[Rfam]
RNA sequence: CCGAAUAACAACGGGAGCUUGGAGAAGCCAGGCUGAGAGGGCGGGAGUCUACGCCGACCGUUUAACCUGAUCUGGGUAAUGCCAGCGUAGGGAUUUUCAAAGGGAUAUGU
Numbered sequence: 001c002c003g004a005a006u007a008a009c010a011a012c013g014g015g016a017g018c019u020u021g022g023a024g025a026a027g028c029c030a031g032g033c034u035g036a037g038a039g040g041g042c043g044g045g046a047g048u049c050u051a052c053g054c055c056g057a058c059c060g061u062u063u064a065a066c067c068u069g070a071u072c073u074g075g076g077u078a079a080u081g082c083c084a085g086c087g088u089a090g091g092g093a094u095u096u097u098c099a100a101a102g103g104g105a106u107a108u109g110u
Stems, first nucleotide, its partner, number of pairs: 007097002010094001011061004017033005040055004066091004072085004
Shown here is a 110-nucleotide sequence from Kroppenstedtia pulmonis, a member of the family "TPP riboswitch aptamer (THI element)".
Pairs were carried over by alignment from the consensus structure, which is taken from published work.
Vitamin B(1) in its active form thiamin pyrophosphate (TPP) is an essential coenzyme that is synthesised by coupling of pyrimidine and thiazole moieties in bacteria.
Rfam links the family to the GO term thiamine pyrophosphate binding.
A search with the family's covariance model found it, with a score of 66 bits.
The organism belongs to Kroppenstedtia, within Bacteria.